This 119-nucleotide sequence from Gossypium gossypioides belongs to the Rfam family "MIR7504 microRNA precursor family". Rfam 15.1 lists 7,343 matches to the family in 61 species. Pairs were carried over by alignment from the consensus structure, which was predicted with RNAalifold. Gene Ontology terms of the family: miRNA-mediated post-transcriptional gene silencing and RISC complex. It scores 100 bits against the family's covariance model.
[Rfam]
RNA sequence: AAGAAUGACAAGUCAGAUUUUUCUUCCUAAUUUUCAGCUUUUUUCCUCUUAAAAGAAUUCAAAUUCAACUAAAAAUACUAAAAAUUAGGAGGAAAAAUCUGAUUUGUCAUUUUCUUAUU
Numbered sequence: 001a002a003g004a005a006u007g008a009c010a011a012g013u014c015a016g017a018u019u020u021u022u023c024u025u026c027c028u029a030a031u032u033u034u035c036a037g038c039u040u041u042u043u044u045c046c047u048c049u050u051a052a053a054a055g056a057a058u059u060c061a062a063a064u065u066c067a068a069c070u071a072a073a074a075a076u077a078c079u080a081a082a083a084a085u086u087a088g089g090a091g092g093a094a095a096a097a098u099c100u101g102a103u104u105u106g107u108c109a110u111u112u113u114c115u116u117a118u119u
Stems, first nucleotide, its partner, number of pairs: 002113021024091011036079002040075004